[Rfam]
RNA sequence: ACCCUCCUGUUCCCUUUCCCAUCGGAUCUGAACACUGGUCUUGGUGGUCGUAAAAGGAGGAAUAGUAGUACUGAAGCUGUCCUCACAGUGCUAGUAUCUGCUCUAGUAUGAGGGCUAGUUUCAAACAAGG
Numbered sequence: 001a002c003c004c005u006c007c008u009g010u011u012c013c014c015u016u017u018c019c020c021a022u023c024g025g026a027u028c029u030g031a032a033c034a035c036u037g038g039u040c041u042u043g044g045u046g047g048u049c050g051u052a053a054a055a056g057g058a059g060g061a062a063u064a065g066u067a068g069u070a071c072u073g074a075a076g077c078u079g080u081c082c083u084c085a086c087a088g089u090g091c092u093a094g095u096a097u098c099u100g101c102u103c104u105a106g107u108a109u110g111a112g113g114g115c116u117a118g119u120u121u122c123a124a125a126c127a128a129g130g
Stems, first nucleotide, its partner, number of pairs: 003060005019047005025040004077118003081114003092108002